The record is an 80-nucleotide RNA from Alligator sinensis, which matches "Mammalian CPEB3 ribozyme" in Rfam.
[Rfam]
RNA sequence: AGAGGUCACAAAUUUGAGGCCAUAGCAGACGCGCUUAUGGCAUGGCCCUGUCAGAUUCCAAAUGAUCUACAAAUUCUGCU
Numbered sequence: 001a002g003a004g005g006u007c008a009c010a011a012a013u014u015u016g017a018g019g020c021c022a023u024a025g026c027a028g029a030c031g032c033g034c035u036u037a038u039g040g041c042a043u044g045g046c047c048c049u050g051u052c053a054g055a056u057u058c059c060a061a062a063u064g065a066u067c068u069a070c071a072a073a074u075u076c077u078g079c080u
Stems, first nucleotide, its partner, number of pairs: 016048001018047004024080006031043001033041001053068005